[Rfam]
Shown here is a 92-nucleotide RNA from Penicillium oxalicum, a member of the family "tRNA". Transfer RNA (tRNA) molecules are approximately 80 nucleotides in length. Their secondary structure includes four short double-helical elements and three loops (D, anti-codon, and T loops). Further hydrogen bonds mediate the characteristic L-shaped molecular structure. tRNAs have two regions of fundamental functional importance: the anti-codon, which is responsible for specific mRNA codon recognition, and the 3' end, to which the tRNAs corresponding amino acid is attached (by aminoacyl-tRNA synthetases). tRNAs cope with the degeneracy of the genetic code in two manners: having more than one tRNA (with a specific anti-codon) for a particular amino acid; and 'wobble' base-pairing, i.e. permitting non-standard base-pairing at the 3rd anti-codon position.

RNA sequence: GGGAUAAUAACUCAGCUGGGAGAGUGUACGACUGAAGAACAACUUCUGUCUCUGUUAUCGUAAAGUCGCCAGUUCGAGCCUGGCUUGUCCCA
Numbered sequence: 001g002g003g004a005u006a007a008u009a010a011c012u013c014a015g016c017u018g019g020g021a022g023a024g025u026g027u028a029c030g031a032c033u034g035a036a037g038a039a040c041a042a043c044u045u046c047u048g049u050c051u052c053u054g055u056u057a058u059c060g061u062a063a064a065g066u067c068g069c070c071a072g073u074u075c076g077a078g079c080c081u082g083g084c085u086u087g088u089c090c091c092a
Base pairs, nucleotide, nucleotide: 001091002090003089004088005087006086007085010025011024012023013022027062028061029060030059031058068084069083070082071081072080
Dot-bracket structure: (((((((..((((........)))).(((((..........................))))).....(((((.......)))))))))))).